[Rfam]
RNA sequence: GACUUAAAGAUAUAAUCCAUCUAGCGACGGGUUAUACUCUUUUUAGACUGUUGUCUAAUCCCCUCAACUAAACGAAAUUUUUGCCAUACUUGUAUGGCGGAUUGAAAUUUCCCUAGGUUACCACCAUCCCGGCCCCAGUGUCGUGUCAUUCAGUGGUCCCUCGCACUGUUCCGUCAGUGCUUAAACCACUGUCUGACCUGCACGUAGUUCUGUCUGCGUGCAGUGUGGAUAGUACGUUCCGUCGUGCUUGAAACCGAUAACAGGUCGCUAUGGGUUCUAACCAUUUGACCCUGGCUUUUGCCAGUGAUUCUGAAAUUUCU
Numbered sequence: 001g002a003c004u005u006a007a008a009g010a011u012a013u014a015a016u017c018c019a020u021c022u023a024g025c026g027a028c029g030g031g032u033u034a035u036a037c038u039c040u041u042u043u044u045a046g047a048c049u050g051u052u053g054u055c056u057a058a059u060c061c062c063c064u065c066a067a068c069u070a071a072a073c074g075a076a077a078u079u080u081u082u083g084c085c086a087u088a089c090u091u092g093u094a095u096g097g098c099g100g101a102u103u104g105a106a107a108u109u110u111c112c113c114u115a116g117g118u119u120a121c122c123a124c125c126a127u128c129c130c131g132g133c134c135c136c137a138g139u140g141u142c143g144u145g146u147c148a149u150u151c152a153g154u155g156g157u158c159c160c161u162c163g164c165a166c167u168g169u170u171c172c173g174u175c176a177g178u179g180c181u182u183a184a185a186c187c188a189c190u191g192u193c194u195g196a197c198c199u200g201c202a203c204g205u206a207g208u209u210c211u212g213u214c215u216g217c218g219u220g221c222a223g224u225g226u227g228g229a230u231a232g233u234a235c236g237u238u239c240c241g242u243c244g245u246g247c248u249u250g251a252a253a254c255c256g257a258u259a260a261c262a263g264g265u266c267g268c269u270a271u272g273g274g275u276u277c278u279a280a281c282c283a284u285u286u287g288a289c290c291c292u293g294g295c296u297u298u299u300g301c302c303a304g305u306g307a308u309u310c311u312g313a314a315a316u317u318u319c320u
Stems, first nucleotide, its partner, number of pairs: 006042005016031003020027002044057005076109006082099007118280003125272003130267003134264002138261001139259005152190003163180002166177003200221008225254002231248006
RNA: Alphacoronavirus 5'UTR
Organism: Alphacoronavirus miniopteri